[Rfam]
This 162-nucleotide sequence from Paenibacillus arenilitoris belongs to the Rfam family "c-di-AMP riboswitch aptamer (ydaO/yuaA leader)". The match comes from Rfam's covariance-model search (98 bits). NCBI's taxonomy places the organism under Bacteria, Bacillati, Bacilli, Caryophanales, Paenibacillus.

RNA sequence: AAACCUAUUACGCUGAAUUUUUCGAAACCGAAAAAGCGGGGGAACCAAACGCGGGCGCUUAGCGCUUCGCAAGGGGUGAAUCCGGGGCUUGCGGCCCCGGUAGGGCAUACUCUCUGGCCCGAAUCCGACAGCUAACCUCGUAAGCGGCAAAGGAGAGGAUUA
Numbered sequence: 001a002a003a004c005c006u007a008u009u010a011c012g013c014u015g016a017a018u019u020u021u022u023c024g025a026a027a028c029c030g031a032a033a034a035a036g037c038g039g040g041g042g043a044a045c046c047a048a049a050c051g052c053g054g055g056c057g058c059u060u061a062g063c064g065c066u067u068c069g070c071a072a073g074g075g076g077u078g079a080a081u082c083c084g085g086g087g088c089u090u091g092c093g094g095c096c097c098c099g100g101u102a103g104g105g106c107a108u109a110c111u112c113u114c115u116g117g118c119c120c121g122a123a124u125c126c127g128a129c130a131g132c133u134a135a136c137c138u139c140g141u142a143a144g145c146g147g148c149a150a151a152g153g154a155g156a157g158g159a160u161u162a
Base pairs, nucleotide, nucleotide: 011146012145013144014143018035019034020033021032022031023030024029036141037140038139039138040137041136046073074126075125076124082100083099084098085097103120104119105118106117